[Rfam]
RNA: Clostridiales-2 RNA
RNA sequence: AUAAAAAUAAAGGUGUAGGAAAAAGGAUUUCUUGCCGUAGCAAGGAGGGUGCGCAGACACGUAGUGUCGUCGAAAGGAAC
Dot-bracket structure: ..............((((((((.....))))))))....................((((.....))))............
Numbered sequence: 001a002u003a004a005a006a007a008u009a010a011a012g013g014u015g016u017a018g019g020a021a022a023a024a025g026g027a028u029u030u031c032u033u034g035c036c037g038u039a040g041c042a043a044g045g046a047g048g049g050u051g052c053g054c055a056g057a058c059a060c061g062u063a064g065u066g067u068c069g070u071c072g073a074a075a076g077g078a079a080c
Stems, first nucleotide, its partner, number of pairs: 015035008056068004